This 180-nucleotide sequence from Rhodobacteraceae bacterium THAF1 belongs to the Rfam family "Ruegeria cis52 sRNA". Its family is annotated with regulation of gene expression in the Gene Ontology.
[Rfam]
RNA sequence: UUGCGAAGGGCGUGCUUCAGUACAACCUUGGGGAAGCUGACGCCCUUCAGCCGCGCGGUGCGGAUGUACUGUUGGGUCAUCACCUCUGCCAUGGACGCGCGGGUCAUCCGGGCGAUGUAACCGAUGCCGUAGAGCGCGAUGGUCAGGACGGGCAGGGCGAAGUUUUCGAAGGUCGCGUUC
Numbered sequence: 001u002u003g004c005g006a007a008g009g010g011c012g013u014g015c016u017u018c019a020g021u022a023c024a025a026c027c028u029u030g031g032g033g034a035a036g037c038u039g040a041c042g043c044c045c046u047u048c049a050g051c052c053g054c055g056c057g058g059u060g061c062g063g064a065u066g067u068a069c070u071g072u073u074g075g076g077u078c079a080u081c082a083c084c085u086c087u088g089c090c091a092u093g094g095a096c097g098c099g100c101g102g103g104u105c106a107u108c109c110g111g112g113c114g115a116u117g118u119a120a121c122c123g124a125u126g127c128c129g130u131a132g133a134g135c136g137c138g139a140u141g142g143u144c145a146g147g148a149c150g151g152g153c154a155g156g157g158c159g160a161a162g163u164u165u166u167c168g169a170a171g172g173u174c175g176c177g178u179u180c
Base pairs, nucleotide, nucleotide: 004142006140010137011136012135013134015132016131017129020127021126022125029124031122032121041112043110047106049104051102052101053100054099055098056076060072061071062070063069083097085095086094087093146180147179148178151174152173153172155166156165157164
NCBI's taxonomy places the organism under Bacteria, Pseudomonadati, Alphaproteobacteria, Rhodobacterales, Paracoccaceae.
On this family, see Rivers et al., Front Microbiol 2016: "Experimental Identification of Small Non-Coding RNAs in the Model Marine Bacterium Ruegeria pomeroyi DSS-3".
The family's RNA type in Rfam is small RNA.